[Rfam]
RNA sequence: GAGAGUAAGGCGAGAAACCUUACCGUCGAAAGCCUAAGGUUUCCUGGGGAAGGAUAAUCCGCCCAGGGUAAGUCGGGACCUAAGCCGAGGCGAAAGCGUAGGCGAUGGACAACCGGUAAUAAAUCCGGUACCACCGAAAUCCGUCAAAAGAGAAGCAAGGACGCAGCGAGAUAAGAAAAGCGUGCGGUUGGUAGAGCACGUCCAAGCAGCGACGAAAAGAGCUUUGAGUGAAGUACCAAAGCUCAUAAGAGCUGUGAAGGGGAGCCGAAAGGCGAAGUUUCGAAGGGGCUGCCAAGAAAAGUUGCUAUCGAGGAUAGAGGUGCCCGUACCAGAAACCGACACAGGUAGGCGAGGAGAGAAUCCAAAGACGAG
Numbered sequence: 001g002a003g004a005g006u007a008a009g010g011c012g013a014g015a016a017a018c019c020u021u022a023c024c025g026u027c028g029a030a031a032g033c034c035u036a037a038g039g040u041u042u043c044c045u046g047g048g049g050a051a052g053g054a055u056a057a058u059c060c061g062c063c064c065a066g067g068g069u070a071a072g073u074c075g076g077g078a079c080c081u082a083a084g085c086c087g088a089g090g091c092g093a094a095a096g097c098g099u100a101g102g103c104g105a106u107g108g109a110c111a112a113c114c115g116g117u118a119a120u121a122a123a124u125c126c127g128g129u130a131c132c133a134c135c136g137a138a139a140u141c142c143g144u145c146a147a148a149a150g151a152g153a154a155g156c157a158a159g160g161a162c163g164c165a166g167c168g169a170g171a172u173a174a175g176a177a178a179a180g181c182g183u184g185c186g187g188u189u190g191g192u193a194g195a196g197c198a199c200g201u202c203c204a205a206g207c208a209g210c211g212a213c214g215a216a217a218a219g220a221g222c223u224u225u226g227a228g229u230g231a232a233g234u235a236c237c238a239a240a241g242c243u244c245a246u247a248a249g250a251g252c253u254g255u256g257a258a259g260g261g262g263a264g265c266c267g268a269a270a271g272g273c274g275a276a277g278u279u280u281c282g283a284a285g286g287g288g289c290u291g292c293c294a295a296g297a298a299a300a301g302u303u304g305c306u307a308u309c310g311a312g313g314a315u316a317g318a319g320g321u322g323c324c325c326g327u328a329c330c331a332g333a334a335a336c337c338g339a340c341a342c343a344g345g346u347a348g349g350c351g352a353g354g355a356g357a358g359a360a361u362c363c364a365a366a367g368a369c370g371a372g
Stems, first nucleotide, its partner, number of pairs: 005023006024370004032350004038330002043067006052060002074326004079108002084103003088099001090097002112129005132322004139315004150309002154306005163292004175281004180201006202260002206255004213249001220243007228236002264273003336345002353363003